[Rfam]
Nucleotides: 068
Stems, first nucleotide, its partner, number of pairs: 001020008041065010
Number, partner (000 for none) and nucleotide at each position: 001020g002019c003018g004017g005016a006015g007014a008013c009000g010000c011000a012000a013008g014007u015006u016005u017004c018003c019002g020001u021000u022000c023000a024000c025000u026000c027000c028000u029000c030000a031000c032000a033000c034000c035000a036000c037000a038000c039000c040000c041065c042064g043063c044062c045061u046060a047059g048058g049057u050056c051000a052000u053000c054000a055000c056050g057049a058048u059047c060046u061045a062044g063043g064042c065041g066000g067000u068000u

A member of the RNA family "Cyanobacterial functional RNA 1" from cf. Phormidesmis sp. LEGE 11477, 68 nucleotides long. It is annotated as a small RNA. For this family Rfam cites "Identification of cyanobacterial non-coding RNAs by comparative genome analysis" (Axmann et al., Genome Biol, 2005). The source organism's lineage runs through Bacteria, Cyanobacteriota, Cyanophyceae, Leptolyngbyales and Phormidesmis.